A member of the RNA family "mir-9242 microRNA precursor family" from Myotis davidii, 64 nucleotides long. Rfam links the family to the GO terms miRNA-mediated post-transcriptional gene silencing and RISC complex. The organism belongs to Myotis, within Eukaryota.
RNA sequence: GGCCUCCUUCUGUGGGGCGAUCGAUCAUGGGGCUCUGCGAUUGAUCGCCGCGCAGAGGAUGGCC
Numbered sequence: 001g002g003c004c005u006c007c008u009u010c011u012g013u014g015g016g017g018c019g020a021u022c023g024a025u026c027a028u029g030g031g032g033c034u035c036u037g038c039g040a041u042u043g044a045u046c047g048c049c050g051c052g053c054a055g056a057g058g059a060u061g062g063c064c
Stems, first nucleotide, its partner, number of pairs: 001064004007058008016049011028037003
The match comes from Rfam's covariance-model search (65 bits). Pairs were carried over by alignment from the consensus structure, which was predicted with RNAalifold.